[Rfam]
RNA sequence: CGGGAGAGAUCCCGCUGGGAUGUGGCCAUUUUGGCUGAACCGUAAA
Numbered sequence: 001c002g003g004g005a006g007a008g009a010u011c012c013c014g015c016u017g018g019g020a021u022g023u024g025g026c027c028a029u030u031u032u033g034g035c036u037g038a039a040c041c042g043u044a045a046a
Base pairs, nucleotide, nucleotide: 001014002013003012004011005010016042017041018040024036025035026034027033028032
Dot-bracket structure: (((((....))))).(((.....(((((...)))))...)))....
eL15-Euryarchaeota ribosomal protein leader: a 46-nucleotide RNA sequence. Rfam classes the family as a cis-regulatory leader. For this family Rfam cites "Discovery of 20 novel ribosomal leader candidates in bacteria and archaea" (Eckert and Weinberg, BMC Microbiol, 2020). Pairs were carried over by alignment from the consensus structure, which is taken from published work.